[Rfam]
Xanthomonas sRNA sX9: a 77-nucleotide RNA from Xanthomonas oryzae. It scores 76 bits against the family's covariance model. Taxonomically the source falls in Xanthomonas oryzae pv. oryzae (Bacteria, Pseudomonadati, Gammaproteobacteria, Lysobacteraceae). By type it is a small RNA.
RNA sequence: AUGGACCACGCGUCCACUGCGGUUCUGAGCGCGCUGUCUGCGCCCACCUGACAGCUACUCGCGACGUGUUGUUAGCC
Dot-bracket structure: .(((((.....)))))...((((.(.....).))))...........(((((((..............)))))))..